[Rfam]
RNA sequence: GUCCAGUUUUCCCAGGAAUCCCUUGGGCUGUCAAAAAAGGGGAUUCCUGGAAAUACUGAU
Numbered sequence: 001g002u003c004c005a006g007u008u009u010u011c012c013c014a015g016g017a018a019u020c021c022c023u024u025g026g027g028c029u030g031u032c033a034a035a036a037a038a039g040g041g042g043a044u045u046c047c048u049g050g051a052a053a054u055a056c057u058g059a060u
Stems, first nucleotide, its partner, number of pairs: 004058004009053002012050012